[Rfam]
RNA sequence: UAGUAUUACAGCUCUUUUAGGAUUUGCCUAGCAGGUUUUCGAGUUUUUACCAGAAAACCCCC
Numbered sequence: 001u002a003g004u005a006u007u008a009c010a011g012c013u014c015u016u017u018u019a020g021g022a023u024u025u026g027c028c029u030a031g032c033a034g035g036u037u038u039u040c041g042a043g044u045u046u047u048u049a050c051c052a053g054a055a056a057a058c059c060c061c062c
Stems, first nucleotide, its partner, number of pairs: 034059007043050002
The record is a 62-nucleotide RNA from Saimiri boliviensis, which matches "U7 small nuclear RNA" in Rfam.
For this family Rfam cites "3' end processing of mouse histone pre-mRNA: evidence for additional base-pairing between U7 snRNA and pre-mRNA" (Spycher et al., Nucleic Acids Res, 1994).
Rfam describes the family as follows. Animal histone pre-mRNAs are spliced by a different mechanism than nuclear pre-mRNAs and self-splicing introns.